[Rfam]
RNA sequence: UUAUAUAUAUUUUUAAAAAUAUAAAAAAGGGUGAAGAAAAGAAAGACCACUAAAUCUAAAUAAAGGAGCAAUAACCACUUUCUUGUUCUAGCAAGAGUGUUGGUAUUGCUCCUUU
Numbered sequence: 001u002u003a004u005a006u007a008u009a010u011u012u013u014u015a016a017a018a019a020u021a022u023a024a025a026a027a028a029g030g031g032u033g034a035a036g037a038a039a040a041g042a043a044a045g046a047c048c049a050c051u052a053a054a055u056c057u058a059a060a061u062a063a064a065g066g067a068g069c070a071a072u073a074a075c076c077a078c079u080u081u082c083u084u085g086u087u088c089u090a091g092c093a094a095g096a097g098u099g100u101u102g103g104u105a106u107u108g109c110u111c112c113u114u115u
Stems, first nucleotide, its partner, number of pairs: 008023003012019001062115012077100002080097005

Rfam assigns this 115-nucleotide RNA sequence from Gossypium australe to the family "Plastid-psbA-1 3UTR RNA". On this family, see Richter et al., Plant Commun 2023: "Retrograde signaling in plants: A critical review focusing on the GUN pathway and beyond". Rfam's curators write: Plastid psbA-1 is a non-coding RNA (ncRNA) present in plastids. It was identified in inverted repeat sequences in the 3 prime untranslate region (3UTR) of photosystem II quinone-binding protein (psbA). The match comes from Rfam's covariance-model search (57 bits).